[Rfam]
RNA sequence: UGGCGAAGGUCCCAGCAGGGAGGGUAAAACAAACUGUACCAGAGACCUCUCUAACAACAAUUUAAUACCUUCGUAGAUUCAACUGCCAAUUUGUAGGACUUGCUAAUCUUUCUUUUGAUUUUUAGUGAGUCUUUUAUAAUUGGCUACAUUUUU
Numbered sequence: 001u002g003g004c005g006a007a008g009g010u011c012c013c014a015g016c017a018g019g020g021a022g023g024g025u026a027a028a029a030c031a032a033a034c035u036g037u038a039c040c041a042g043a044g045a046c047c048u049c050u051c052u053a054a055c056a057a058c059a060a061u062u063u064a065a066u067a068c069c070u071u072c073g074u075a076g077a078u079u080c081a082a083c084u085g086c087c088a089a090u091u092u093g094u095a096g097g098a099c100u101u102g103c104u105a106a107u108c109u110u111u112c113u114u115u116u117g118a119u120u121u122u123u124a125g126u127g128a129g130u131c132u133u134u135u136a137u138a139a140u141u142g143g144c145u146a147c148a149u150u151u152u153u
Stems, first nucleotide, its partner, number of pairs: 003074007011020003026050001034042003085144007097131002100128007
Description:
The family of this 153-nucleotide RNA from Papaver nudicaule is "Small nucleolar RNA snoR145". The family's RNA type in Rfam is H/ACA-box small nucleolar RNA. The family has 19 seed sequences and 286 matches in Rfam 15.1. It scores 93 bits against the family's covariance model. A reference for the family is Chen and Wu (2009), "Mining small RNA sequencing data: a new approach to identify small nucleolar RNAs in Arabidopsis", Nucleic Acids Res. Pairs were carried over by alignment from the consensus structure, which was predicted with mfold.